[Rfam]
RNA sequence: CAAGUCAAGUGAUGAAUAAGUUCUUAUCCAACACAUUGAAUUGUUUUGUUAACCUUAAACUCCACUUAUUAUUUGAUGCUCA
Numbered sequence: 001c002a003a004g005u006c007a008a009g010u011g012a013u014g015a016a017u018a019a020g021u022u023c024u025u026a027u028c029c030a031a032c033a034c035a036u037u038g039a040a041u042u043g044u045u046u047u048g049u050u051a052a053c054c055u056u057a058a059a060c061u062c063c064a065c066u067u068a069u070u071a072u073u074u075g076a077u078g079c080u081c082a
Stems, first nucleotide, its partner, number of pairs: 003080002006078002
RNA: Small nucleolar RNA R16
Organism: Hevea brasiliensis